Rfam assigns this 83-nucleotide sequence from Triticum urartu to the family "MIR9657 microRNA precursor family". Gene Ontology terms of the family: RISC complex and miRNA-mediated post-transcriptional gene silencing. Lineage of the source: Eukaryota > Streptophyta > Liliopsida > Poaceae > Triticum.
[Rfam]
RNA sequence: UGGCGCGGCGGCUCCGUUCGCCGGAGCAGCGUGCAGAGAAGAGAUCCCGCGCGCUGCUCCGUCGAACGUGGCUUCCUGCGUCG
Numbered sequence: 001u002g003g004c005g006c007g008g009c010g011g012c013u014c015c016g017u018u019c020g021c022c023g024g025a026g027c028a029g030c031g032u033g034c035a036g037a038g039a040a041g042a043g044a045u046c047c048c049g050c051g052c053g054c055u056g057c058u059c060c061g062u063c064g065a066a067c068g069u070g071g072c073u074u075c076c077u078g079c080g081u082c083g
Stems, first nucleotide, its partner, number of pairs: 001083006007076001011072003015068006022061003026057009036047001038045001